[Rfam]
RNA sequence: UAUGCCAGAGGUGGGAAAAUGCGUUGCACCCAUGCGCCGAAUUGGCUAAAAGAGAUGCUGCAGAUUGCGACGGCAGCCUGGCAAA
Number, nucleotide and partner (000 for none) at each position: 001u085002a000003u083004g082005c081006c080007a079008g078009a000010g000011g033012u032013g031014g030015g029016a000017a000018a000019a000020u000021g000022c000023g071024u070025u069026g068027c067028a000029c015030c014031c013032a012033u011034g000035c052036g046037c045038c044039g043040a000041a000042u000043u039044g038045g037046c036047u000048a000049a000050a000051a000052g035053a000054g000055a000056u000057g077058c076059u075060g074061c073062a000063g000064a000065u000066u000067g027068c026069g025070a024071c023072g000073g061074c060075a059076g058077c057078c008079u007080g006081g005082c004083a003084a000085a001
Record summary: skipping-rope RNA: an 85-nucleotide RNA sequence. The family's consensus secondary structure is taken from published work. Rfam classes the family as a small RNA. It is one of the family's seed sequences.